The record is a 145-nucleotide RNA from Pipistrellus kuhlii, which matches "Small nucleolar RNA SNORA48" in Rfam. On this family, see Ofengand and Bakin, J Mol Biol 1997: "Mapping to nucleotide resolution of pseudouridine residues in large subunit ribosomal RNAs from representative eukaryotes, prokaryotes, archaebacteria, mitochondria and chloroplasts". The base pairs follow the family's consensus structure, which was predicted with RNAalifold.
[Rfam]
RNA sequence: ACCCCCUGGCAAUGGGCACGGAGACACCUGAUUGGUGGUGUUGCUCUUGCAUCAAGCAGGGGAGGAGCAGAUGUACAGUCCUCGGUGCAUCCCAGCUUGAUGCCUGUGUCCGUGGCCAGAGCUGGUCCAUGCCUGAGGCACAUAA
Numbered sequence: 001a002c003c004c005c006c007u008g009g010c011a012a013u014g015g016g017c018a019c020g021g022a023g024a025c026a027c028c029u030g031a032u033u034g035g036u037g038g039u040g041u042u043g044c045u046c047u048u049g050c051a052u053c054a055a056g057c058a059g060g061g062g063a064g065g066a067g068c069a070g071a072u073g074u075a076c077a078g079u080c081c082u083c084g085g086u087g088c089a090u091c092c093c094a095g096c097u098u099g100a101u102g103c104c105u106g107u108g109u110c111c112g113u114g115g116c117c118a119g120a121g122c123u124g125g126u127c128c129a130u131g132c133c134u135g136a137g138g139c140a141c142a143u144a145a
Stems, first nucleotide, its partner, number of pairs: 003062006013054003020047002023042006084139001086137001088135001099133001101131001105129002108127001110125003

Clan: SNORA48 clan. The source organism's lineage runs through Eukaryota, Opisthokonta, Euteleostomi, Amniota and Pipistrellus. The match comes from Rfam's covariance-model search (58 bits). Rfam's curators write: The snoRNA ACA 48 has been identified to guide pseudouridylation of the residue U3797 in the 28S rRNA subunit.